[Rfam]
RNA sequence: UGGUAGAUGCACCCUGGUUCGGCUCUAGAGUUCCCCUCUAGGGCUGUUUUAU
Numbered sequence: 001u002g003g004u005a006g007a008u009g010c011a012c013c014c015u016g017g018u019u020c021g022g023c024u025c026u027a028g029a030g031u032u033c034c035c036c037u038c039u040a041g042g043g044c045u046g047u048u049u050u051a052u
Stems, first nucleotide, its partner, number of pairs: 002013003022044009
Dot-bracket structure: .(((......)))........(((((((((.....)))))))))........
Rfam assigns this 52-nucleotide RNA from Oscillatoria sp. FACHB-1406 to the family "Nitrogen stress-induced RNA 1". By type it is a small RNA. Taxonomically the source falls in Oscillatoria (Bacteria, Cyanobacteriota, Cyanophyceae, Oscillatoriales). The match comes from Rfam's covariance-model search (42 bits).